[Rfam]
Overview:
The family of this 82-nucleotide sequence from Danaus plexippus is "mir-989 microRNA precursor family". The family has 9 seed sequences and 57 matches in Rfam 15.1. The family's consensus secondary structure was predicted with RNAalifold. Taxonomically the source falls in Danaus plexippus (Eukaryota, Insecta, Glossata, Heteroneura).

RNA sequence: AAGGGCUGAAAUGGCCAUUACCUCACAGUCACGUAGUCUUGAAGUACAACGUGUGAUGUGACGUAGUGGAAGUCUCGGCCCG
Numbered sequence: 001a002a003g004g005g006c007u008g009a010a011a012u013g014g015c016c017a018u019u020a021c022c023u024c025a026c027a028g029u030c031a032c033g034u035a036g037u038c039u040u041g042a043a044g045u046a047c048a049a050c051g052u053g054u055g056a057u058g059u060g061a062c063g064u065a066g067u068g069g070a071a072g073u074c075u076c077g078g079c080c081c082g
Stems, first nucleotide, its partner, number of pairs: 003081007015069007023061004029056004034051001